[Rfam]
RNA sequence: AUUCAGGUAAAUCUCAGCUGGCAACUGUGAGUUUGAGCCUCAUGGUGUCAGCUGAGGUUCACCUGAAC
Numbered sequence: 001a002u003u004c005a006g007g008u009a010a011a012u013c014u015c016a017g018c019u020g021g022c023a024a025c026u027g028u029g030a031g032u033u034u035g036a037g038c039c040u041c042a043u044g045g046u047g048u049c050a051g052c053u054g055a056g057g058u059u060c061a062c063c064u065g066a067a068c
Base pairs, nucleotide, nucleotide: 003066004065005064006063007062010059011058012057013056014055015054016053017052021049023046026044027043028042029041030040031039
RNA: mir-216 microRNA precursor family